Notes
ffh sRNA: a 52-nucleotide sequence from Sulfitobacter noctilucicola.
[Rfam]
RNA sequence: UGAGGCAGGGAUCGCCCCCAGUCAGCGCGUUGCGCCCACUGGGGCAAACUUC
Numbered sequence: 001u002g003a004g005g006c007a008g009g010g011a012u013c014g015c016c017c018c019c020a021g022u023c024a025g026c027g028c029g030u031u032g033c034g035c036c037c038a039c040u041g042g043g044g045c046a047a048a049c050u051u052c
Base pairs, nucleotide, nucleotide: 016044017043018042019041020040021039022038025035026034027033028032
The literature on the family includes a 2009 paper in BMC Genomics by Meyer et al., "Identification of candidate structured RNAs in the marine organism 'Candidatus Pelagibacter ubique'". Taxonomically the source falls in Sulfitobacter (Bacteria, Pseudomonadota, Alphaproteobacteria, Roseobacteraceae). Rfam classes the family as a small RNA.